Shown here is a 66-nucleotide RNA sequence from Pantoea ananatis, a member of the family "RybB RNA". A search with the family's covariance model found it, with a score of 63 bits. The family's RNA type in Rfam is small RNA. NCBI's taxonomy places the organism under Bacteria, Pseudomonadati, Enterobacterales, Pantoea, Pantoea ananatis. A reference for the family is Wassarman et al. (2001), "Identification of novel small RNAs using comparative genomics and microarrays", Genes Dev. Rfam's curators write: This ncRNA was identified in a large scale screen of E. coli. The function of this short RNA is unknown. The exact 5' and 3' ends of this RNA are uncertain.
[Rfam]
RNA sequence: ACUGCUUUUCUUUGAAAUCCCCAAAUUGUGGAGCCCGCUGGUCUUUUUCCCAGCGGGUUUUUUUAU
Numbered sequence: 001a002c003u004g005c006u007u008u009u010c011u012u013u014g015a016a017a018u019c020c021c022c023a024a025a026u027u028g029u030g031g032a033g034c035c036c037g038c039u040g041g042u043c044u045u046u047u048u049c050c051c052a053g054c055g056g057g058u059u060u061u062u063u064u065a066u
Base pairs, nucleotide, nucleotide: 032059033058034057035056036055037054038053039052040051041050